RNA sequence: CUGUCCCCUGGAGUUCCCUCAAGCACUUCAUUAGGGCUCGUCCACUGUUGGGGAGCCAAAAUCUACGGAAGUGUUUGGGGGAACUCCGGGUGCCAC
Numbered sequence: 001c002u003g004u005c006c007c008c009u010g011g012a013g014u015u016c017c018c019u020c021a022a023g024c025a026c027u028u029c030a031u032u033a034g035g036g037c038u039c040g041u042c043c044a045c046u047g048u049u050g051g052g053g054a055g056c057c058a059a060a061a062u063c064u065a066c067g068g069a070a071g072u073g074u075u076u077g078g079g080g081g082a083a084c085u086c087c088g089g090g091u092g093c094c095a096c
Base pairs, nucleotide, nucleotide: 005092007090008089009088011086012085013084014083015082016081017080018079019078020077021076022075023074024073025072026071027070028069029068032065033064034063035062
About this RNA: Shown here is a 96-nucleotide RNA sequence from Phoenix dactylifera, a member of the family "mir-395 microRNA precursor family". About the family: mir-395 was identified in both Arabidopsis thaliana and Oryza sativa computationally and was later experimentally verified. mir-395 is thought to target mRNAs coding for ATP sulphurylases. The mature sequence is excised from the 3' arm of the hairpin. Taxonomically the source falls in Phoenix (Eukaryota, Mesangiospermae, Arecales, Phoeniceae). The match comes from Rfam's covariance-model search (62 bits). Gene Ontology terms of the family: miRNA-mediated post-transcriptional gene silencing and RISC complex.